RNA sequence: UCUCGCCUUCCCUCCCUGAGGCGAGGCCUUACAAGCAAGGCGAUUCUCCCCGGCUUAAUCCCCUUUAGCCGGGGUUUUUUUU
Numbered sequence: 001u002c003u004c005g006c007c008u009u010c011c012c013u014c015c016c017u018g019a020g021g022c023g024a025g026g027c028c029u030u031a032c033a034a035g036c037a038a039g040g041c042g043a044u045u046c047u048c049c050c051c052g053g054c055u056u057a058a059u060c061c062c063c064u065u066u067a068g069c070c071g072g073g074g075u076u077u078u079u080u081u082u
Base pairs, nucleotide, nucleotide: 002025003024004023005022006021007020026041027040028039029038030037048074049073050072051071052070053069054068055067
Shown here is an 82-nucleotide RNA sequence from Nitrosomonas eutropha, a member of the family "Burkholderia RNA 7 (anti-hemB)". The family has 26 seed sequences and 479 matches in Rfam 15.1. Rfam's curators put it in the seed alignment. Lineage of the source: Bacteria > Betaproteobacteria > Nitrosomonadales > Nitrosomonadaceae > Nitrosomonas eutropha. Rfam's curators write: This RNA motif was identified by computational search in b-proteobacteria Burkholderia. By type it is a small RNA.